[Rfam]
RNA: mir-217 microRNA precursor family
Organism: Atractosteus spatula
RNA sequence: AGCUUUCUGAUGUGGCAGAUACUGCAUCAGGAACUGAUUGGAUGAUGUAGAGGGGCCAUCAGUUCUUGAUGCAUUGCCUUCAGCAUCGAACGA
Numbered sequence: 001a002g003c004u005u006u007c008u009g010a011u012g013u014g015g016c017a018g019a020u021a022c023u024g025c026a027u028c029a030g031g032a033a034c035u036g037a038u039u040g041g042a043u044g045a046u047g048u049a050g051a052g053g054g055g056c057c058a059u060c061a062g063u064u065c066u067u068g069a070u071g072c073a074u075u076g077c078c079u080u081c082a083g084c085a086u087c088g089a090a091c092g093a
Stems, first nucleotide, its partner, number of pairs: 023073005029067009039058003